[Rfam]
The record is a 229-nucleotide part of an RNA from Haloplasma contractile, which matches "Bacterial large subunit ribosomal RNA" in Rfam. NCBI's taxonomy places the organism under Bacteria, Mycoplasmatota, Mollicutes, Haloplasmataceae, Haloplasma contractile. The base pairs follow the family's consensus structure, which is taken from published work. The sequence is in the family's curated seed alignment.

RNA sequence: GAGUUACGAUAUCGUGCGAGGUUAAGAUGAAGAAUCGGAGCCGCAGCGAAAGCGAGUCUUAAUAGGGCGUAUAGUACGAUGUCGUAGACCCGAAACCGUGUGAGCUAGCCAUGUGCAGGAUGAAGGUUGGGUAACACCAACUGGAGGUCCGAACCAGGGUACGUUGAAAAGUGCUUGGAUGACGUGUGGCUAGAGGUGAAAUUCCAAUCGAACACGGAUAUAGCUGGUU
Numbered sequence: 001g002a003g004u005u006a007c008g009a010u011a012u013c014g015u016g017c018g019a020g021g022u023u024a025a026g027a028u029g030a031a032g033a034a035u036c037g038g039a040g041c042c043g044c045a046g047c048g049a050a051a052g053c054g055a056g057u058c059u060u061a062a063u064a065g066g067g068c069g070u071a072u073a074g075u076a077c078g079a080u081g082u083c084g085u086a087g088a089c090c091c092g093a094a095a096c097c098g099u100g101u102g103a104g105c106u107a108g109c110c111a112u113g114u115g116c117a118g119g120a121u122g123a124a125g126g127u128u129g130g131g132u133a134a135c136a137c138c139a140a141c142u143g144g145a146g147g148u149c150c151g152a153a154c155c156a157g158g159g160u161a162c163g164u165u166g167a168a169a170a171g172u173g174c175u176u177g178g179a180u181g182a183c184g185u186g187u188g189g190c191u192a193g194a195g196g197u198g199a200a201a202u203u204c205c206a207a208u209c210g211a212a213c214a215c216g217g218a219u220a221u222a223g224c225u226g227g228u229u
Stems, first nucleotide, its partner, number of pairs: 005086013020042004026036003046053002056068004089227002092224001096217006105193011116181001118150004125142006154178003158175005195205002